[Rfam]
RNA sequence: CCGCAUAAUGAUACCUAGCCGCAGACAGCAGGUGCCCGAAGGGCUUAAUGGCUUACACCGCCGCCAGCCGAGGCCGGGGGGGAUCAAAACCUGUGAGCGUUUUGCUUAACGGGCCUCUGGCAUGCUGUCUUAAGCCGGGGGCUUUUUUAGUUGUUAU
Numbered sequence: 001c002c003g004c005a006u007a008a009u010g011a012u013a014c015c016u017a018g019c020c021g022c023a024g025a026c027a028g029c030a031g032g033u034g035c036c037c038g039a040a041g042g043g044c045u046u047a048a049u050g051g052c053u054u055a056c057a058c059c060g061c062c063g064c065c066a067g068c069c070g071a072g073g074c075c076g077g078g079g080g081g082g083a084u085c086a087a088a089a090c091c092u093g094u095g096a097g098c099g100u101u102u103u104g105c106u107u108a109a110c111g112g113g114c115c116u117c118u119g120g121c122a123u124g125c126u127g128u129c130u131u132a133a134g135c136c137g138g139g140g141g142c143u144u145u146u147u148u149a150g151u152u153g154u155u156a157u
Stems, first nucleotide, its partner, number of pairs: 028068002031065003034044003113142009
RNA: Ribosomal protein L10 leader
Organism: Desulfoscipio geothermicus